[Rfam]
RNA sequence: UAAGCAUAAAAAGCGCCAGAACUCAGGUGAUUUUUUAAAAUAAAAUACAUAUAAUUAUUUUAAAUGUAUAAAUUACUUUGAGUUGACGAGGAUGGGGAGUAUCGAAUCUUCGGCGGGUGCCCCACGGUAUCGCACUACCGUUAACAGCUGGUAAAACCAAAAAGUGAUUUUUGGUACAAUAUCAGCCUGGUGUUAAAA
Numbered sequence: 001u002a003a004g005c006a007u008a009a010a011a012a013g014c015g016c017c018a019g020a021a022c023u024c025a026g027g028u029g030a031u032u033u034u035u036u037a038a039a040a041u042a043a044a045a046u047a048c049a050u051a052u053a054a055u056u057a058u059u060u061u062a063a064a065u066g067u068a069u070a071a072a073u074u075a076c077u078u079u080g081a082g083u084u085g086a087c088g089a090g091g092a093u094g095g096g097g098a099g100u101a102u103c104g105a106a107u108c109u110u111c112g113g114c115g116g117g118u119g120c121c122c123c124a125c126g127g128u129a130u131c132g133c134a135c136u137a138c139c140g141u142u143a144a145c146a147g148c149u150g151g152u153a154a155a156a157c158c159a160a161a162a163a164g165u166g167a168u169u170u171u172u173g174g175u176a177c178a179a180u181a182u183c184a185g186c187c188u189g190g191u192g193u194u195a196a197a198a
Stems, first nucleotide, its partner, number of pairs: 020084008093124005102113004125140005147186004157174007
A member of the RNA family "glmS glucosamine-6-phosphate activated ribozyme aptamer" from Clostridium kluyveri, 198 nucleotides long. Rfam links the family to the GO terms catalytic activity and regulation of gene expression.